This 106-nucleotide sequence from Oceanobacillus piezotolerans belongs to the Rfam family "SAM riboswitch aptamer (S box leader)".
A search with the family's covariance model found it, with a score of 69 bits.
Pairs were carried over by alignment from the consensus structure, which is taken from published work.
RNA sequence: AGGUUAUCAAGAGUGAACGAGAGUACUGGCUCACUGACUUCACAGCAACCUGCCACCCGAGGCAAGGUGCUCCUACCAGCAAAGCAUUUGCUUUGGAUGAUAAUGA
Numbered sequence: 001a002g003g004u005u006a007u008c009a010a011g012a013g014u015g016a017a018c019g020a021g022a023g024u025a026c027u028g029g030c031u032c033a034c035u036g037a038c039u040u041c042a043c044a045g046c047a048a049c050c051u052g053c054c055a056c057c058c059g060a061g062g063c064a065a066g067g068u069g070c071u072c073c074u075a076c077c078a079g080c081a082a083a084g085c086a087u088u089u090g091c092u093u094u095g096g097a098u099g100a101u102a103a104u105g106a
Stems, first nucleotide, its partner, number of pairs: 003104006013043005021032003026079004044071004049067002051064004075098001080095006